[Rfam]
RNA sequence: GGUUUCUAUUGGUGCAAAUCCAAUCAUUCCGUUUGAGAUGAGAAGGGAUUCUCCAUUGGUAACAAAGAGUUAUCCAUUAAGCGGAGGAAAAAG
Numbered sequence: 001g002g003u004u005u006c007u008a009u010u011g012g013u014g015c016a017a018a019u020c021c022a023a024u025c026a027u028u029c030c031g032u033u034u035g036a037g038a039u040g041a042g043a044a045g046g047g048a049u050u051c052u053c054c055a056u057u058g059g060u061a062a063c064a065a066a067g068a069g070u071u072a073u074c075c076a077u078u079a080a081g082c083g084g085a086g087g088a089a090a091a092a093g
Base pairs, nucleotide, nucleotide: 009023010022011021012020051086052085053084054083055077056076058074059073060072061071062070063069
RNA: Plastid-rps12 3UTR RNA